[Rfam]
Nucleotides: 047
Stems, first nucleotide, its partner, number of pairs: 002019007034047005
Number, partner (000 for none) and nucleotide at each position: 001000g002019g003018u004017u005016c006015g007014g008013g009000a010000c011000g012000a013008c014007c015006c016005g017004g018003a019002u020000a021000c022000a023000c024000g025000c026000c027000a028000u029000c030000u031000u032000a033000u034047u035046g036045g037044g038043g039000a040000c041000g042000g043038c044037c045036c046035c047034a